Notes
Rfam assigns this 134-nucleotide RNA sequence from Vombatus ursinus to the family "Small nucleolar RNA SNORA64/SNORA10 family". Gene Ontology terms of the family: nucleolus and RNA processing. It scores 54 bits against the family's covariance model. NCBI's taxonomy places the organism under Eukaryota, Metazoa, Chordata, Craniata, Vombatus. Rfam describes the family as follows. This family belongs to the H/ACA class of small nucleolar RNAs (snoRNAs) which act as guides in the the modification of uridines to pseudouridines. A reference for the family is Narayanan et al. (1999), "Nucleolar localization signals of box H/ACA small nucleolar RNAs", EMBO J.
RNA sequence: AUCUCCUUAGCUCUGCUCAGUUGCACUUGGCCAAGUAUGGUGUGACUGUCGUACACAGGAGAAAGAACAAGAAUUCCCUUUGACAACAGCCUGACCUGCCGUGGUCUCUCUGUUCCAUAUGGGAUUUGACAACU
Numbered sequence: 001a002u003c004u005c006c007u008u009a010g011c012u013c014u015g016c017u018c019a020g021u022u023g024c025a026c027u028u029g030g031c032c033a034a035g036u037a038u039g040g041u042g043u044g045a046c047u048g049u050c051g052u053a054c055a056c057a058g059g060a061g062a063a064a065g066a067a068c069a070a071g072a073a074u075u076c077c078c079u080u081u082g083a084c085a086a087c088a089g090c091c092u093g094a095c096c097u098g099c100c101g102u103g104g105u106c107u108c109u110c111u112g113u114u115c116c117a118u119a120u121g122g123g124a125u126u127u128g129a130c131a132a133c134u
Base pairs, nucleotide, nucleotide: 002066003065004064007063008062012059013058014057015056019047020046021045022044023043024042025041026040074124075123076122077121080117082115088111089110093106094105095104096103